This 145-nucleotide RNA from Gossypium aridum belongs to the Rfam family "MIR7502 microRNA precursor family". The family has 6 seed sequences and 74,505 matches in Rfam 15.1. The match comes from Rfam's covariance-model search (80 bits).
RNA sequence: UACUAAAAAUUUUAUCCACUUUUAUUGUUAAAAAUUUCUAUGGCUGACAAAAUAACCAAACAAUCACACAUGGUGUGCCACAUACAUCUCAUACUGAUGUACGAGGACCACUUUUGAAUAGUAGCUUUGGAUGAAAUUUUUAAAA
Numbered sequence: 001u002a003c004u005a006a007a008a009a010u011u012u013u014a015u016c017c018a019c020u021u022u023u024a025u026u027g028u029u030a031a032a033a034a035u036u037u038c039u040a041u042g043g044c045u046g047a048c049a050a051a052a053u054a055a056c057c058a059a060a061c062a063a064u065c066a067c068a069c070a071u072g073g074u075g076u077g078c079c080a081c082a083u084a085c086a087u088c089u090c091a092u093a094c095u096g097a098u099g100u101a102c103g104a105g106g107a108c109c110a111c112u113u114u115u116g117a118a119u120a121g122u123a124g125c126u127u128u129g130g131a132u133g134a135a136a137u138u139u140u141u142a143a144a145a
Stems, first nucleotide, its partner, number of pairs: 004142013018128001022124005028118002031115003